[Rfam]
RNA sequence: CGGGAUGUAGCUCAGUUUGGUAGAGCGCACGGUUCGGGACCGUGAGGUCGCACGUUCAAGUCGUGUCAUCCCGA
Numbered sequence: 001c002g003g004g005a006u007g008u009a010g011c012u013c014a015g016u017u018u019g020g021u022a023g024a025g026c027g028c029a030c031g032g033u034u035c036g037g038g039a040c041c042g043u044g045a046g047g048u049c050g051c052a053c054g055u056u057c058a059a060g061u062c063g064u065g066u067c068a069u070c071c072c073g074a
Stems, first nucleotide, its partner, number of pairs: 001073007010026004028044005050066005
The family of this 74-nucleotide RNA sequence from Pelotomaculum isophthalicicum is "tRNA". The family's RNA type in Rfam is transfer RNA. The match comes from Rfam's covariance-model search (65 bits). Gene Ontology term of the family: triplet codon-amino acid adaptor activity. Rfam's curators write: Transfer RNA (tRNA) molecules are approximately 80 nucleotides in length.